RNA sequence: AAAAAUCUUACUGUUAUAUUUAUAUUGCAAUUUGUACUAUAGAUAAAAUCUUAAGUACAGCCGUUCUGCUCGAAACGGUACAGCAGUUUUUUAACUGGUGUUAUGAAUUGUAGCAACGCGAGAGUCGGCGUUUUAACAGGCUUGGCGGUCUCUUGAGUGGGUAUCUUGGAAGCAUUAAAGUAGAAAGUAAGCUACUAUGCUAGUUGUAGGGCAAGGGUUACAAUGACAGUGAAUUUAAACUGUUACAAGAUAAGU
Numbered sequence: 001a002a003a004a005a006u007c008u009u010a011c012u013g014u015u016a017u018a019u020u021u022a023u024a025u026u027g028c029a030a031u032u033u034g035u036a037c038u039a040u041a042g043a044u045a046a047a048a049u050c051u052u053a054a055g056u057a058c059a060g061c062c063g064u065u066c067u068g069c070u071c072g073a074a075a076c077g078g079u080a081c082a083g084c085a086g087u088u089u090u091u092u093a094a095c096u097g098g099u100g101u102u103a104u105g106a107a108u109u110g111u112a113g114c115a116a117c118g119c120g121a122g123a124g125u126c127g128g129c130g131u132u133u134u135a136a137c138a139g140g141c142u143u144g145g146c147g148g149u150c151u152c153u154u155g156a157g158u159g160g161g162u163a164u165c166u167u168g169g170a171a172g173c174a175u176u177a178a179a180g181u182a183g184a185a186a187g188u189a190a191g192c193u194a195c196u197a198u199g200c201u202a203g204u205u206g207u208a209g210g211g212c213a214a215g216g217g218u219u220a221c222a223a224u225g226a227c228a229g230u231g232a233a234u235u236u237a238a239a240c241u242g243u244u245a246c247a248a249g250a251u252a253a254g255u
Base pairs, nucleotide, nucleotide: 007191008190009189010188011187012186033059034058035057036056037055038054040053041052061078062077063076064075065074080101081100082099084097085096086095087094088093116131117130118129119128122143123142124141125140126139150217151216152215153214154213155212162252163251164250165249166248167247168246170244171201172200173199174198175197179196180195181194182193183192203224204223205222206221207220208219226243227242228241229240230239

The record is a 255-nucleotide RNA, which matches "ARRPOF RNA" in Rfam.